[Rfam]
RNA sequence: AUCACCUGAGAAUCUUGUUAAAAUGUAACUUCUGAUUCAAUAGGUCCGGGGUGAGGAGUAAGAUUCUGCAUUUCUAACAAGCUCUCAGGUGAUGGCCA
Numbered sequence: 001a002u003c004a005c006c007u008g009a010g011a012a013u014c015u016u017g018u019u020a021a022a023a024u025g026u027a028a029c030u031u032c033u034g035a036u037u038c039a040a041u042a043g044g045u046c047c048g049g050g051g052u053g054a055g056g057a058g059u060a061a062g063a064u065u066c067u068g069c070a071u072u073u074c075u076a077a078c079a080a081g082c083u084c085u086c087a088g089g090u091g092a093u094g095g096c097c098a
Stems, first nucleotide, its partner, number of pairs: 003091003009085003014081007021073003025069003031063003
Dot-bracket structure: ..(((...(((..((((((((((.(((...(((...........................)))...))).))).))))))).)))...))).......
RNA: mir-544 microRNA precursor family
Organism: Trichechus manatus